This 127-nucleotide RNA from Dendrobium nobile belongs to the Rfam family "U11 spliceosomal RNA". The family's RNA type in Rfam is spliceosomal small nuclear RNA. The source organism's lineage runs through Eukaryota, Tracheophyta, Petrosaviidae, Epidendroideae and Dendrobium.
[Rfam]
RNA sequence: CAAAAGGGUCUGUUGGCAAUGUAUGCCAAGCACAUCCUUUAAUUGAUGGGCACUGUAUGAUUAUCAAGACAUAUGACUGACAUAAUUUAUGGAUAAAAUAGGGUUGGCUUGCUUGGCCAACCCUACU
Numbered sequence: 001c002a003a004a005a006g007g008g009u010c011u012g013u014u015g016g017c018a019a020u021g022u023a024u025g026c027c028a029a030g031c032a033c034a035u036c037c038u039u040u041a042a043u044u045g046a047u048g049g050g051c052a053c054u055g056u057a058u059g060a061u062u063a064u065c066a067a068g069a070c071a072u073a074u075g076a077c078u079g080a081c082a083u084a085a086u087u088u089a090u091g092g093a094u095a096a097a098a099u100a101g102g103g104u105u106g107g108c109u110u111g112c113u114u115g116g117c118c119a120a121c122c123c124u125a126c127u
Stems, first nucleotide, its partner, number of pairs: 008081003012077001014028005030051002033048004054075006099125011